The family of this 171-nucleotide part of an RNA from Trichonephila clavipes is "Eukaryotic small subunit ribosomal RNA". Taxonomically the source falls in Trichonephila (Eukaryota, Metazoa, Arthropoda, Araneae). Rfam links the family to the GO terms ribosome and structural constituent of ribosome. A search with the family's covariance model found it, with a score of 1457 bits. The family is grouped with related families in Rfam's "SSU clan".
RNA sequence: CCGCCCGUCGCUAUCUCCGAUCGAGCGGUGGAGUGAGGUCUUCGGACGAGCUCGCUGGUCCUUCCUCGUCGGAGGACCGGGUGUGGCACGGAAAAAGACCGAACUUGGCCGUUUAGAGGAGGUAAAAGUCGUAACAAGGUUUCCGUAGGUGAACCUGUGGAAGGAUCAUUG
Numbered sequence: 001c002c003g004c005c006c007g008u009c010g011c012u013a014u015c016u017c018c019g020a021u022c023g024a025g026c027g028g029u030g031g032a033g034u035g036a037g038g039u040c041u042u043c044g045g046a047c048g049a050g051c052u053c054g055c056u057g058g059u060c061c062u063u064c065c066u067c068g069u070c071g072g073a074g075g076a077c078c079g080g081g082u083g084u085g086g087c088a089c090g091g092a093a094a095a096a097g098a099c100c101g102a103a104c105u106u107g108g109c110c111g112u113u114u115a116g117a118g119g120a121g122g123u124a125a126a127a128g129u130c131g132u133a134a135c136a137a138g139g140u141u142u143c144c145g146u147a148g149g150u151g152a153a154c155c156u157g158u159g160g161a162a163g164g165a166u167c168a169u170u171g
Base pairs, nucleotide, nucleotide: 001138003135006131007130009128012124013123014122015121016120017119018118021115023114024113025112026111027110028109029108031106032105033104034103037100038099039098040097041096042095047090048089050087051086053083054082055081056080058077059076060075061074062073063072064071140163141162142161143160144159145158146157147156148155149154